[Rfam]
RNA sequence: AAACAACCCCCUACGUAUUGGAUCUUUGGCAGUUUUAGCCCCCAAGUUCACUUUUGACUUAGCAUUCGCUGACGUGGCACCCACAUCCCUUAAGUGAGGUGCCAUGUGUCGACCAUUGUGGAUGCCACGUCAGCGAAUGUUAAGUCAAAAGUGGAUUUGGGGGCCAAAACUGCCAAAGAUCCAAUACAUAGGGGAAUGUUU
Numbered sequence: 001a002a003a004c005a006a007c008c009c010c011c012u013a014c015g016u017a018u019u020g021g022a023u024c025u026u027u028g029g030c031a032g033u034u035u036u037a038g039c040c041c042c043c044a045a046g047u048u049c050a051c052u053u054u055u056g057a058c059u060u061a062g063c064a065u066u067c068g069c070u071g072a073c074g075u076g077g078c079a080c081c082c083a084c085a086u087c088c089c090u091u092a093a094g095u096g097a098g099g100u101g102c103c104a105u106g107u108g109u110c111g112a113c114c115a116u117u118g119u120g121g122a123u124g125c126c127a128c129g130u131c132a133g134c135g136a137a138u139g140u141u142a143a144g145u146c147a148a149a150a151g152u153g154g155a156u157u158u159g160g161g162g163g164c165c166a167a168a169a170c171u172g173c174c175a176a177a178g179a180u181c182c183a184a185u186a187c188a189u190a191g192g193g194g195a196a197u198g199u200u201u
Base pairs, nucleotide, nucleotide: 001201002200004198005197008194012190013189015187016186017185018184019183020182021181022180023179024178025177026176027175028174029173030172031171032170033169034168035167036166038164039163040162041161042160043159044158045157072130073129075127076126077125078124079123081121082120083119084118085117
RNA: MIR2619 microRNA precursor family
Organism: Medicago truncatula